[Rfam]
RNA: Early nodulin 40
RNA sequence: AUGGAGACGGGUGGCAGGAAACGUCUGCAUGGUUCUUGAGAGCUGCAUAAGCAGUACAGCAGUACAAGGAUGGAGGACAAUGGCUGAGCUGAGCUGAGCUUUCCUCUAUCGAUCAUCAGUAUCUGUCCAUGCCUCGCAUGGCCUUCUUCCCUGGCUUCCAGUUCCAGAUGGCUUGGUGAGGCGCGGACAGAGAGACCGGCAAGUCAGAAAUCGGCAAUGGUGAGCUCCUAUAGGAGCCUA
Numbered sequence: 001a002u003g004g005a006g007a008c009g010g011g012u013g014g015c016a017g018g019a020a021a022c023g024u025c026u027g028c029a030u031g032g033u034u035c036u037u038g039a040g041a042g043c044u045g046c047a048u049a050a051g052c053a054g055u056a057c058a059g060c061a062g063u064a065c066a067a068g069g070a071u072g073g074a075g076g077a078c079a080a081u082g083g084c085u086g087a088g089c090u091g092a093g094c095u096g097a098g099c100u101u102u103c104c105u106c107u108a109u110c111g112a113u114c115a116u117c118a119g120u121a122u123c124u125g126u127c128c129a130u131g132c133c134u135c136g137c138a139u140g141g142c143c144u145u146c147u148u149c150c151c152u153g154g155c156u157u158c159c160a161g162u163u164c165c166a167g168a169u170g171g172c173u174u175g176g177u178g179a180g181g182c183g184c185g186g187a188c189a190g191a192g193a194g195a196c197c198g199g200c201a202a203g204u205c206a207g208a209a210a211u212c213g214g215c216a217a218u219g220g221u222g223a224g225c226u227c228c229u230a231u232a233g234g235a236g237c238c239u240a
Base pairs, nucleotide, nucleotide: 061107062106119196120195122193123192124191132181133180134179224237225236226235227234